[Rfam]
Small nucleolar RNA SNORA64/SNORA10 family: a 133-nucleotide RNA from Peromyscus maniculatus. Its family is annotated with nucleolus and RNA processing in the Gene Ontology. Rfam 15.1 lists 703 matches to the family in 311 species. On this family, see Narayanan et al., EMBO J 1999: "Nucleolar localization signals of box H/ACA small nucleolar RNAs". By type it is an H/ACA-box small nucleolar RNA.

RNA sequence: CUCCUUCAGCUCUGCUGAAUUACAUGGGCCCAGUGUGCACUUAGUAUCUUUUUGAUGUAGAAAGGAGAAGGUCCUCCUCAUACAUGGCAGACCUGCCCAAAGGAACAUCUCUAUUCCUAGGAGUCUGGCAGCU
Number, nucleotide and partner (000 for none) at each position: 001c000002u066003c065004c064005u062006u061007c060008a000009g000010c057011u000012c000013u054014g053015c000016u000017g000018a042019a041020u000021u039022a000023c037024a036025u035026g000027g000028g000029c000030c000031c000032a000033g000034u000035g025036u024037g023038c000039a021040c000041u019042u018043a000044g000045u000046a000047u000048c000049u000050u000051u000052u000053u014054g013055a000056u000057g010058u000059a000060g007061a006062a005063a000064g004065g003066a002067g000068a000069a000070g000071g000072u000073c000074c123075u122076c121077c120078u119079c000080a118081u000082a000083c000084a000085u000086g000087g000088c000089a112090g111091a110092c000093c000094u107095g106096c000097c000098c000099a000100a000101a000102g000103g000104a000105a000106c095107a094108u000109c000110u091111c090112u089113a000114u000115u000116c000117c000118u080119a078120g077121g076122a075123g074124u000125c000126u000127g000128g000129c000130a000131g000132c000133u000
This family belongs to the H/ACA class of small nucleolar RNAs (snoRNAs) which act as guides in the the modification of uridines to pseudouridines.